[Rfam]
Shown here is a 40-nucleotide sequence from Morganella morganii, a member of the family "nuoG RNA". The family's RNA type in Rfam is cis-regulatory element. The source organism's lineage runs through Bacteria, Pseudomonadota, Gammaproteobacteria, Morganella morganii and Morganella morganii subsp. morganii.
RNA sequence: GGAUUUUCGUUUAACGCCUGCAUAGCAGGCCUUUUGGAAG
Dot-bracket structure: ...............((((((...))))))..........